The family of this 181-nucleotide sequence from Rhizobium subbaraonis is "Rhizobiales sRNA Atu_C9". It is annotated as a small RNA. NCBI's taxonomy places the organism under Bacteria, Pseudomonadati, Hyphomicrobiales, Rhizobiaceae, Rhizobium.
RNA sequence: CCGCAACGCAAGGGAGGUCAGCCGAUGGGUAUCACACAUUCCUUGAAUGUUCUGAUGAUCAGUGCAGCGUUCCUCUUCGUCGCCAGCAUGAUUUUCAUCUGACGACAGCGUCGUCCUGAAGGACAAAACGCAGAGACCAAUAGUUCAUGAAAACGCAUGGCCCCGCCGGGUCAUGCGUUUU
Numbered sequence: 001c002c003g004c005a006a007c008g009c010a011a012g013g014g015a016g017g018u019c020a021g022c023c024g025a026u027g028g029g030u031a032u033c034a035c036a037c038a039u040u041c042c043u044u045g046a047a048u049g050u051u052c053u054g055a056u057g058a059u060c061a062g063u064g065c066a067g068c069g070u071u072c073c074u075c076u077u078c079g080u081c082g083c084c085a086g087c088a089u090g091a092u093u094u095u096c097a098u099c100u101g102a103c104g105a106c107a108g109c110g111u112c113g114u115c116c117u118g119a120a121g122g123a124c125a126a127a128a129c130g131c132a133g134a135g136a137c138c139a140a141u142a143g144u145u146c147a148u149g150a151a152a153a154c155g156c157a158u159g160g161c162c163c164c165g166c167c168g169g170g171u172c173a174u175g176c177g178u179u180u181u
Base pairs, nucleotide, nucleotide: 017051019049020048027043028042029041150181151180152179153178154177155176156175157174158173159172160171161170162169